The family of this 84-nucleotide RNA sequence from Kalanchoe fedtschenkoi is "Small nucleolar RNA Z159/U59".
Rfam classes the family as a C/D-box small nucleolar RNA.
[Rfam]
RNA sequence: GCCUUUGAUGAUGAUCAAAACAAAUACUUUCGUUCUUCUGAAUUUGCUGUGUUGAAAUUAUUUGGAGACCUGAACUGAAAAGGC
Numbered sequence: 001g002c003c004u005u006u007g008a009u010g011a012u013g014a015u016c017a018a019a020a021c022a023a024a025u026a027c028u029u030u031c032g033u034u035c036u037u038c039u040g041a042a043u044u045u046g047c048u049g050u051g052u053u054g055a056a057a058u059u060a061u062u063u064g065g066a067g068a069c070c071u072g073a074a075c076u077g078a079a080a081a082g083g084c
Base pairs, nucleotide, nucleotide: 003082004081005080006079
Pairs were carried over by alignment from the consensus structure, which was predicted with PFOLD.